[Rfam]
RNA sequence: UAGAAAUGGGGGUUCCUUUGAGGACAAAGAAAGCGUUUCGAAUCAUUUGGACUGAAGGAAGCUCCUAAUUCAG
Numbered sequence: 001u002a003g004a005a006a007u008g009g010g011g012g013u014u015c016c017u018u019u020g021a022g023g024a025c026a027a028a029g030a031a032a033g034c035g036u037u038u039c040g041a042a043u044c045a046u047u048u049g050g051a052c053u054g055a056a057g058g059a060a061g062c063u064c065c066u067a068a069u070u071c072a073g
Base pairs, nucleotide, nucleotide: 007067008066009065010064011063012062013061014060016058017057018056022053023052025050027048028047029046

MIR319 microRNA precursor family: a 73-nucleotide sequence from Amborella trichopoda.
The source organism's lineage runs through Eukaryota, Viridiplantae, Tracheophyta, Spermatophyta and Amborella.
Its family is annotated with RISC complex and miRNA-mediated post-transcriptional gene silencing in the Gene Ontology.